A member of the RNA family "MIR4371 microRNA precursor family" from Glycine max, 128 nucleotides long. Lineage of the source: Eukaryota > Tracheophyta > Fabales > Phaseoleae > Glycine subgen. Soja. The sequence is in the family's curated seed alignment. Clan: MIR4387 microRNA precursor clan. Its family is annotated with miRNA-mediated post-transcriptional gene silencing and RISC complex in the Gene Ontology. The base pairs follow the family's consensus structure, which was predicted with RNAalifold.
Nucleotides: 128
Stems, first nucleotide, its partner, number of pairs: 002128003006124018025105016043087002047084005067078004
Number, partner (000 for none) and nucleotide at each position: 001000g002128u003127u004126a005000a006124g007123u008122g009121a010120u011119g012118a013117c014116a015115u016114g017113a018112c019111a020110a021109g022108c023107g024000a025105a026104g027103u028102a029101u030100c031099a032098c033097g034096u035095u036094a037093u038092c039091a040090c041000c042000c043087u044086c045000u046000u047084g048083u049082c050081a051080u052000a053000u054000u055000a056000u057000c058000a059000c060000c061000u062000u063000u064000a065000a066000u067078g068077a069076c070075a071000u072000a073000c074000g075070u076069g077068u078067c079000a080051a081050u082049g083048a084047u085000u086044g087043a088000a089000c090040g091039u092038g093037a094036u095035g096034a097033u098032g099031u100030g101029a102028u103027a104026u105025u106000c107023u108022g109021u110020u111019u112018g113017u114016c115015a116014u117013g118012u119011u120010a121009u122008c123007a124006c125000c126004u127003a128002a